About this RNA: The family of this 138-nucleotide sequence from Glycine soja is "MIR1520 microRNA precursor family". Its family is annotated with RISC complex and miRNA-mediated post-transcriptional gene silencing in the Gene Ontology.
RNA sequence: UUCUUAUUGGAUGAUGACUGUCACGUCUCAUGUGUGUCAUGUUCUAAUUAGUUAAUAAAAAUAACAAUGCAUUUCAUCUUUCAUGGAGUUGACAUCGAAUCAGAACAUGACACACAUGACACGUGACAAUCAUCAUAC
Numbered sequence: 001u002u003c004u005u006a007u008u009g010g011a012u013g014a015u016g017a018c019u020g021u022c023a024c025g026u027c028u029c030a031u032g033u034g035u036g037u038c039a040u041g042u043u044c045u046a047a048u049u050a051g052u053u054a055a056u057a058a059a060a061a062u063a064a065c066a067a068u069g070c071a072u073u074u075c076a077u078c079u080u081u082c083a084u085g086g087a088g089u090u091g092a093c094a095u096c097g098a099a100u101c102a103g104a105a106c107a108u109g110a111c112a113c114a115c116a117u118g119a120c121a122c123g124u125g126a127c128a129a130u131c132a133u134c135a136u137a138c
Stems, first nucleotide, its partner, number of pairs: 020127004025122002029118003033114004038109008